The record is a 164-nucleotide sequence from Otolemur garnettii, which matches "U1 spliceosomal RNA" in Rfam. A search with the family's covariance model found it, with a score of 111 bits. The family's RNA type in Rfam is spliceosomal small nuclear RNA. Clan: U1 clan. Taxonomically the source falls in Otolemur (Eukaryota, Metazoa, Eumetazoa, Vertebrata).

[Rfam]
RNA sequence: AUACUUACCUGGCAGGGGAGAUGCCAUGAUCAUGAAGGUGGAUAAGAGUGAGGCUUAUCCAUUGCACUCCUGAUGUACUGACCCCUGCGAUUUCCCCAAAUGUGGGAAACUCGGCUGCAUAAUUUGUGGUGGUGGUGGGGGGACUGCAUUUGCACUUUCCCCUG
Numbered sequence: 001a002u003a004c005u006u007a008c009c010u011g012g013c014a015g016g017g018g019a020g021a022u023g024c025c026a027u028g029a030u031c032a033u034g035a036a037g038g039u040g041g042a043u044a045a046g047a048g049u050g051a052g053g054c055u056u057a058u059c060c061a062u063u064g065c066a067c068u069c070c071u072g073a074u075g076u077a078c079u080g081a082c083c084c085c086u087g088c089g090a091u092u093u094c095c096c097c098a099a100a101u102g103u104g105g106g107a108a109a110c111u112c113g114g115c116u117g118c119a120u121a122a123u124u125u126g127u128g129g130u131g132g133u134g135g136u137g138g139g140g141g142g143a144c145u146g147c148a149u150u151u152g153c154a155c156u157u158u159c160c161c162c163u164g
Stems, first nucleotide, its partner, number of pairs: 012118004021043001024041004045086002048083001050082001052079002056075004088113003091109003095105002137163005143158001146155001